The family of this 254-nucleotide sequence from Hemibagrus wyckioides is "RNase MRP". Pairs were carried over by alignment from the consensus structure, which is taken from published work. Taxonomically the source falls in Hemibagrus (Eukaryota, Opisthokonta, Deuterostomia, Teleostei). A search with the family's covariance model found it, with a score of 139 bits.

[Rfam]
RNA sequence: GCGCAUGUCUGAAUACUUGCUCUCUAAGCUACAUACUGAGAACCUGGUUUCUCUUCCCGCGCUUAGGGGAAAGUCCCCGGACACCGAGCAGAGAUGCUCCGCCCAAUCGGCGGGUCAUGAGCUUGUCACGAUACUGUCUUCUGCUAAGACGUCACUUCCUGGCUGAGCAGAGUAUCACAGGCCAUGUUGGUCAUCACAAGAGAAAUGCAGGUACUGGUACGCUGCAACUGAACGGGGCUCAUUCUCAGGAUGCG
Numbered sequence: 001g002c003g004c005a006u007g008u009c010u011g012a013a014u015a016c017u018u019g020c021u022c023u024c025u026a027a028g029c030u031a032c033a034u035a036c037u038g039a040g041a042a043c044c045u046g047g048u049u050u051c052u053c054u055u056c057c058c059g060c061g062c063u064u065a066g067g068g069g070a071a072a073g074u075c076c077c078c079g080g081a082c083a084c085c086g087a088g089c090a091g092a093g094a095u096g097c098u099c100c101g102c103c104c105a106a107u108c109g110g111c112g113g114g115u116c117a118u119g120a121g122c123u124u125g126u127c128a129c130g131a132u133a134c135u136g137u138c139u140u141c142u143g144c145u146a147a148g149a150c151g152u153c154a155c156u157u158c159c160u161g162g163c164u165g166a167g168c169a170g171a172g173u174a175u176c177a178c179a180g181g182c183c184a185u186g187u188u189g190g191u192c193a194u195c196a197c198a199a200g201a202g203a204a205a206u207g208c209a210g211g212u213a214c215u216g217g218u219a220c221g222c223u224g225c226a227a228c229u230g231a232a233c234g235g236g237g238c239u240c241a242u243u244c245u246c247a248g249g250a251u252g253c254g
Stems, first nucleotide, its partner, number of pairs: 002254005008249005015212006023067007038053005072239002075237004087098004099114002103110002116186003121182006131175004141170004151163004214224001216222001